[Rfam]
RNA sequence: ACACGAGGAAGGAGGUGGUCCAGAGGUGAAUAUUCUUCGGACGCGUGAGGUGGCUACCCGCUAGCCCGUCAAGCGGACGGACCUGAGGUCCUCCCGCCGACGGCGGCGAGAACCAGGUGGUCACCGGAGCCCGCGGGGCCGUGGACAUCGUCCACCACGGCACCUGACCAGGACGGUCGGGAACCCGCGGGCUCUUCCAU
Numbered sequence: 001a002c003a004c005g006a007g008g009a010a011g012g013a014g015g016u017g018g019u020c021c022a023g024a025g026g027u028g029a030a031u032a033u034u035c036u037u038c039g040g041a042c043g044c045g046u047g048a049g050g051u052g053g054c055u056a057c058c059c060g061c062u063a064g065c066c067c068g069u070c071a072a073g074c075g076g077a078c079g080g081a082c083c084u085g086a087g088g089u090c091c092u093c094c095c096g097c098c099g100a101c102g103g104c105g106g107c108g109a110g111a112a113c114c115a116g117g118u119g120g121u122c123a124c125c126g127g128a129g130c131c132c133g134c135g136g137g138g139c140c141g142u143g144g145a146c147a148u149c150g151u152c153c154a155c156c157a158c159g160g161c162a163c164c165u166g167a168c169c170a171g172g173a174c175g176g177u178c179g180g181g182a183a184c185c186c187g188c189g190g191g192c193u194c195u196u197c198c199a200u
Stems, first nucleotide, its partner, number of pairs: 014058006059108004064104002067102004073097003127194011139160006
Rfam assigns this 200-nucleotide RNA from Georgenia subflava to the family "Actinobacteria sRNA Ms_IGR-5". The source organism's lineage runs through Bacteria, Bacillati, Actinomycetes, Allobogoriellales and Georgenia. Rfam classes the family as a small RNA.